Rfam assigns this 79-nucleotide sequence from Hibiscus syriacus to the family "Small nucleolar RNA R21". Taxonomically the source falls in Hibiscus (Eukaryota, Streptophyta, rosids, Malvaceae). On this family, see Barneche et al., J Mol Biol 2001: "Identification of 66 box C/D snoRNAs in Arabidopsis thaliana: extensive gene duplications generated multiple isoforms predicting new ribosomal RNA 2'-O-methylation sites". The family's consensus secondary structure was predicted with PFOLD. Rfam links the family to the GO terms nucleolus and RNA processing. The family's RNA type in Rfam is C/D-box small nucleolar RNA.
RNA sequence: AAUCCCUGUGAAGAUCAAUUUCAAUAACUAAAAGUAGUGGACUGAUAUCUCCAUUGAUGAACAACGAAUUUGAGGGAUG
Number, nucleotide and partner (000 for none) at each position: 001a000002a078003u077004c076005c075006c074007u000008g000009u000010g000011a000012a000013g000014a000015u000016c000017a000018a000019u000020u000021u000022c000023a000024a000025u000026a000027a000028c000029u000030a000031a000032a000033a000034g000035u000036a000037g000038u000039g000040g000041a000042c000043u000044g000045a000046u000047a000048u000049c000050u000051c000052c000053a000054u000055u000056g000057a000058u000059g000060a000061a000062c000063a000064a000065c000066g000067a000068a000069u000070u000071u000072g000073a000074g006075g005076g004077a003078u002079g000